This 184-nucleotide RNA sequence from Chengkuizengella marina belongs to the Rfam family "6S / SsrS RNA". Rfam classes the family as a non-coding RNA gene. Lineage of the source: Bacteria > Bacillota > Bacilli > Paenibacillaceae > Chengkuizengella. E. coli 6S RNA was the first non coding RNA to be sequenced, but its function was unknown until recently. The literature on the family includes a 2000 paper in Cell by Wassarman and Storz, "6S RNA regulates E. coli RNA polymerase activity".
[Rfam]
RNA sequence: AUAAUCCUGCGAUGUUCGUUCAGAUUCUAAGUUGUUUUGAACCAAUGACUGUUUCACGGGAUUCCAAUAAAUAGUGUGGCUGUCACGCCCCAAUUCAGGGGACUUCAAAAAUAUUGUUGAGGAAACCCACCUGCGAGAGCGGGUUCAUGAAACACAGGAAUCGUACGGCAUAAGCGGGUAUUUU
Dot-bracket structure: ..(..(((((.((((.(((.............(.((.((((((..............(((.((((...(.(((((((..........((((......)))).........))))))))..)))).))).............)))))).)).)............)))))))..)))))..)...